[Rfam]
RNA sequence: AACCUAUGAUGAUGAUUCUGCCAUAUGAACCCCUUGAUUCAACUCUUCCGUUCCAUUUUUUAAUCUGAGGUU
Numbered sequence: 001a002a003c004c005u006a007u008g009a010u011g012a013u014g015a016u017u018c019u020g021c022c023a024u025a026u027g028a029a030c031c032c033c034u035u036g037a038u039u040c041a042a043c044u045c046u047u048c049c050g051u052u053c054c055a056u057u058u059u060u061u062a063a064u065c066u067g068a069g070g071u072u
Stems, first nucleotide, its partner, number of pairs: 001072004

The record is a 72-nucleotide RNA from Scyliorhinus torazame, which matches "Small nucleolar RNA SNORD47" in Rfam. The organism belongs to Scyliorhinus, within Eukaryota. Its family is annotated with nucleolus and RNA processing in the Gene Ontology. It scores 54 bits against the family's covariance model.